Shown here is a 163-nucleotide RNA from Natranaerobius trueperi, a member of the family "glmS glucosamine-6-phosphate activated ribozyme aptamer". By type it is a riboswitch. From the family's description: This entry contains a glucosamine-6-phosphate activated ribozyme that is found in the mRNA for GlmS. GlmS is an enzyme that uses fructose-6-phosphate and glutamine to generate glucosamine-6-phosphate. The source organism's lineage runs through Bacteria, Clostridia, Natranaerobiales, Natranaerobiaceae and Natranaerobius. Pairs were carried over by alignment from the consensus structure, which is taken from published work.
RNA sequence: AAAUGCUUAAAAGCGCCAGGACAUUUUUCGCUUAGAAAAAUGUUGACGAGGUUGGAGGUUAAUCGAGUAAUCGGCGGAUACCUCCCGGUGUUUAUCACCACCGUUAAAGGCAUAUAACAAAACUCGAGAUUAAUCUCGAGGACAAAAGGUGCUGGGUGAUAAG
Dot-bracket structure: ...................((((((((.(.....).)))))))).........(((((....((((....))))......)))))(((((........))))).....(((((.(.......(((((((....)))))))......).)))))..........